[Rfam]
RNA sequence: CUGUGGUGCAUUGUGGUUGCAUUGCAUGGGCGACAGGGGUGCAAUGCGUCGGCAGUGCAACACAG
Number, nucleotide and partner (000 for none) at each position: 001c065002u064003g063004u062005g000006g061007u059008g058009c057010a056011u055012u054013g053014u052015g000016g050017u000018u000019g047020c000021a045022u044023u043024g042025c041026a040027u039028g000029g000030g000031c000032g000033a000034c000035a000036g000037g000038g000039g027040u026041g025042c024043a023044a022045u021046g000047c019048g000049u000050c016051g000052g014053c013054a012055g011056u010057g009058c008059a007060a000061c006062a004063c003064a002065g001
The record is a 65-nucleotide RNA sequence from Geotrypetes seraphini, which matches "mir-33 microRNA precursor family" in Rfam. The match comes from Rfam's covariance-model search (68 bits). The family has 73 seed sequences and 1,467 matches in Rfam 15.1. Pairs were carried over by alignment from the consensus structure, which was predicted with PFOLD.